[Rfam]
Nucleotides: 158
Base pairs, nucleotide, nucleotide: 003029004028005027006026008024009023011021012020032072033071034070035069036068038066039065040064041063043060044059045056046055077110078109079108080107081106082105083104087100088099089098113129114128115127116126118124119123132152134151135150136149137148138147
Number, partner (000 for none) and nucleotide at each position: 001000c002000u003029u004028c005027c006026g007000c008024c009023c010000u011021c012020c013000c014000c015000g016000c017000a018000c019000a020012g021011g022000u023009g024008g025000g026006c027005g028004g029003a030000g031000u032072g033071a034070g035069g036068g037000a038066u039065g040064c041063g042000u043060g044059c045056u046055c047000u048000c049000u050000g051000c052000c053000c054000u055046g056045a057000c058000u059044g060043c061000a062000c063041c064040g065039c066038g067000c068036c069035c070034c071033u072032c073000c074000c075000c076000a077110u078109c079108g080107g081106c082105c083104g084000a085000g086000c087100g088099g089098g090000c091000c092000c093000g094000c095000a096000c097000a098089c099088u100087c101000g102000c103000c104083c105082g106081g107080c108079c109078g110077g111000a112000g113129c114128a115127c116126u117000c118124c119123g120000g121000g122000c123119u124118g125000c126116g127115g128114u129113g130000c131000c132152g133000g134151g135150c136149g137148g138147g139000u140000u141000g142000a143000g144000g145000g146000u147138c148137c149136c150135g151134c152132c153000a154000g155000g156000c157000g158000c
Streptomyces sRNA scr5239: a 158-nucleotide sequence from Streptomyces qinzhouensis. A reference for the family is Vockenhuber et al. (2015), "Identification of metE as a second target of the sRNA scr5239 in Streptomyces coelicolor", PLoS One. The match comes from Rfam's covariance-model search (116 bits). Rfam links the family to the GO terms mRNA binding and negative regulation of translation. By type it is a small RNA. The base pairs follow the family's consensus structure, which is taken from published work.